Rfam assigns this 498-nucleotide RNA from Sarcophilus harrisii to the family "Vertebrate telomerase RNA". Rfam 15.1 lists 523 matches to the family in 477 species.
[Rfam]
RNA sequence: GCUGCGUGGGCGGGUCGGUCCGUCCUGGCACAUCUAACCCUAAAUGCGCGCUGCUUGAAGUGGCUUCUCCUGGGCGAUCGCUCGCUGUUUUUGUGGCUGGCUUUCAGCGGGCUGGAGGAGCCGGGAGCGGAGGCGGAGGACCGAGCCAAAAACGUCAGCCGAGGCCGGGCGGCCCCGCUCGUGGCCCGUCCGCACUGUCCGGGCCAGGCCCCGGCCCGAACCCCCUGGAGACGCCUCCCGCAAGGUCUGCGCUGCGCCGCGGAGCCCCGGCUGCCCACGUAGAGGCGGCGGCCGUCUCGGGGCCCCCGCGUGCGGGGCGCCCACUGCGGCCGCCAAGAGCUCGUCUCUGUCAGCCUCGGGUGCACGUGGGCCCGCGGUCGAGCCCUAAGGCCGGGCGUGGGGCUGGGGUCGCAGGGAGAGUAACCGUGAGCCGGCGCCCAGCCUUCAGGGCGCUCCCUCGAGCUAUGGGAGCUGCCCCCGGGCACGGCUCAGACACCC
Numbered sequence: 001g002c003u004g005c006g007u008g009g010g011c012g013g014g015u016c017g018g019u020c021c022g023u024c025c026u027g028g029c030a031c032a033u034c035u036a037a038c039c040c041u042a043a044a045u046g047c048g049c050g051c052u053g054c055u056u057g058a059a060g061u062g063g064c065u066u067c068u069c070c071u072g073g074g075c076g077a078u079c080g081c082u083c084g085c086u087g088u089u090u091u092u093g094u095g096g097c098u099g100g101c102u103u104u105c106a107g108c109g110g111g112c113u114g115g116a117g118g119a120g121c122c123g124g125g126a127g128c129g130g131a132g133g134c135g136g137a138g139g140a141c142c143g144a145g146c147c148a149a150a151a152a153c154g155u156c157a158g159c160c161g162a163g164g165c166c167g168g169g170c171g172g173c174c175c176c177g178c179u180c181g182u183g184g185c186c187c188g189u190c191c192g193c194a195c196u197g198u199c200c201g202g203g204c205c206a207g208g209c210c211c212c213g214g215c216c217c218g219a220a221c222c223c224c225c226u227g228g229a230g231a232c233g234c235c236u237c238c239c240g241c242a243a244g245g246u247c248u249g250c251g252c253u254g255c256g257c258c259g260c261g262g263a264g265c266c267c268c269g270g271c272u273g274c275c276c277a278c279g280u281a282g283a284g285g286c287g288g289c290g291g292c293c294g295u296c297u298c299g300g301g302g303c304c305c306c307c308g309c310g311u312g313c314g315g316g317g318c319g320c321c322c323a324c325u326g327c328g329g330c331c332g333c334c335a336a337g338a339g340c341u342c343g344u345c346u347c348u349g350u351c352a353g354c355c356u357c358g359g360g361u362g363c364a365c366g367u368g369g370g371c372c373c374g375c376g377g378u379c380g381a382g383c384c385c386u387a388a389g390g391c392c393g394g395g396c397g398u399g400g401g402g403c404u405g406g407g408g409u410c411g412c413a414g415g416g417a418g419a420g421u422a423a424c425c426g427u428g429a430g431c432c433g434g435c436g437c438c439c440a441g442c443c444u445u446c447a448g449g450g451c452g453c454u455c456c457c458u459c460g461a462g463c464u465a466u467g468g469g470a471g472c473u474g475c476c477c478c479c480g481g482g483c484a485c486g487g488c489u490c491a492g493a494c495a496c497c498c
Base pairs, nucleotide, nucleotide: 005183006182007181008180009179010178011177012176013175014174016172018170021167022166024164025163067120068119069118070117071116080112081111082110083109084108085107086106087105096159097158098157099156100155101154102152103151104150189415190414192412193411244392245391246390247389248388249385251383252382256378257377258376259375260374261373262372266360267359268358269357270356287334288333289332290331291330292329293328294327295326299322300321301320336348337347338346339345428490429489430488431487434485436483437482438481439480448477449476450475451474452473454470455469456468457467
About the family: Telomerase is a ribonucleoprotein reverse transcriptase that synthesises telomeric DNA. Telomerase RNAs differ greatly in sequence and structure between vertebrates, ciliates and yeasts, but they share a 5' pseudoknot structure close to the template sequence.
A search with the family's covariance model found it, with a score of 134 bits.